Notes: Rfam assigns this 82-nucleotide RNA sequence from Carlito syrichta to the family "Small nucleolar RNA SNORD24". It scores 42 bits against the family's covariance model. Rfam 15.1 lists 2,843 matches to the family in 1,188 species. Gene Ontology terms of the family: nucleolus and RNA processing. On this family, see Qu et al., Nucleic Acids Res 1995: "U24, a novel intron-encoded small nucleolar RNA with two 12 nt long, phylogenetically conserved complementarities to 28S rRNA". It is annotated as a C/D-box small nucleolar RNA.
RNA sequence: UGCUACAAUGAUGACUAUUUAUUUGCUACUCUUGACUGCCAGAAUGACGAGAGUACUUACCACCAUUAUCUUGACUGAGGCA
Numbered sequence: 001u002g003c004u005a006c007a008a009u010g011a012u013g014a015c016u017a018u019u020u021a022u023u024u025g026c027u028a029c030u031c032u033u034g035a036c037u038g039c040c041a042g043a044a045u046g047a048c049g050a051g052a053g054u055a056c057u058u059a060c061c062a063c064c065a066u067u068a069u070c071u072u073g074a075c076u077g078a079g080g081c082a
Stems, first nucleotide, its partner, number of pairs: 001082004